[Rfam]
RNA sequence: UCGGGAUCGCAGCCUCCCGGCCUCCCAAGACGGUGUCCCGUCCAAGCGCUGC
Numbered sequence: 001u002c003g004g005g006a007u008c009g010c011a012g013c014c015u016c017c018c019g020g021c022c023u024c025c026c027a028a029g030a031c032g033g034u035g036u037c038c039c040g041u042c043c044a045a046g047c048g049c050u051g052c
Base pairs, nucleotide, nucleotide: 001020002019003018004017005016006015009052010051011050012049013048029042030041031040032039033038